[Rfam]
RNA sequence: UUGCCCGAUGAUUAUAAAAAGACGCGUUAUUAAGAGGACUUAAUGCUGGAGUCUUCACCUUCCUCUUCUCUUUUCUCUACUUCUUUUUCUUUCUUUGGAUAUCCAGCGUCCUAUGAGCGAAGAUUAUGAGAUAUGAGGGCAA
Numbered sequence: 001u002u003g004c005c006c007g008a009u010g011a012u013u014a015u016a017a018a019a020a021g022a023c024g025c026g027u028u029a030u031u032a033a034g035a036g037g038a039c040u041u042a043a044u045g046c047u048g049g050a051g052u053c054u055u056c057a058c059c060u061u062c063c064u065c066u067u068c069u070c071u072u073u074u075c076u077c078u079a080c081u082u083c084u085u086u087u088u089c090u091u092u093c094u095u096u097g098g099a100u101a102u103c104c105a106g107c108g109u110c111c112u113a114u115g116a117g118c119g120a121a122g123a124u125u126a127u128g129a130g131a132u133a134u135g136a137g138g139g140c141a142a
Base pairs, nucleotide, nucleotide: 001142002141003140004139005138006137035055036054037053038052039051040050041049
RNA: Small nucleolar RNA SNORD97